[Rfam]
RNA sequence: UUAAUCGCAAUUAAAUCCCACACACGCACCGUCACGCCCGGCUGGGUGCCUUCUUUUCCUCGGGAAAGCGGGUUGCCGGGUGGGGUGCGUGGAGGCUCAAC
Numbered sequence: 001u002u003a004a005u006c007g008c009a010a011u012u013a014a015a016u017c018c019c020a021c022a023c024a025c026g027c028a029c030c031g032u033c034a035c036g037c038c039c040g041g042c043u044g045g046g047u048g049c050c051u052u053c054u055u056u057u058c059c060u061c062g063g064g065a066a067a068g069c070g071g072g073u074u075g076c077c078g079g080g081u082g083g084g085g086u087g088c089g090u091g092g093a094g095g096c097u098c099a100a101c
Stems, first nucleotide, its partner, number of pairs: 023091008035082008048073004
Dot-bracket structure: ......................((((((((....((((((((.....((((..................)))).)))))))).))))))))..........
RNA: t44 RNA
Organism: Wenzhouxiangella sp. XN24